This 144-nucleotide sequence from Asparagus officinalis belongs to the Rfam family "small nucleolar RNA snoR135". The family's consensus secondary structure was predicted with RNAalifold. It is annotated as an H/ACA-box small nucleolar RNA. The literature on the family includes a 2009 paper in Nucleic Acids Res by Chen and Wu, "Mining small RNA sequencing data: a new approach to identify small nucleolar RNAs in Arabidopsis".

[Rfam]
RNA sequence: UUUGCAGGAUUGUGUGUAUCGGCGAUCUUGCUGUUUGAAGUGCAUCUCUGCCGAAAGUGUUUCCUGCUAUAGAAAACAAUGAAGAUGGGCAGUUGGGUUCCUAAGUUUUCCGUGGGAAUCCCAACAAUCAUUUUCUGCACAUUU
Dot-bracket structure: ...((((((....((((((....................))))))...............).)))))............(((((((((...((((..........................))))..)))))))).).......
Numbered sequence: 001u002u003u004g005c006a007g008g009a010u011u012g013u014g015u016g017u018a019u020c021g022g023c024g025a026u027c028u029u030g031c032u033g034u035u036u037g038a039a040g041u042g043c044a045u046c047u048c049u050g051c052c053g054a055a056a057g058u059g060u061u062u063c064c065u066g067c068u069a070u071a072g073a074a075a076a077c078a079a080u081g082a083a084g085a086u087g088g089g090c091a092g093u094u095g096g097g098u099u100c101c102u103a104a105g106u107u108u109u110c111c112g113u114g115g116g117a118a119u120c121c122c123a124a125c126a127a128u129c130a131u132u133u134u135c136u137g138c139a140c141a142u143u144u
Stems, first nucleotide, its partner, number of pairs: 004067005009061001014045006080137001081135008092125004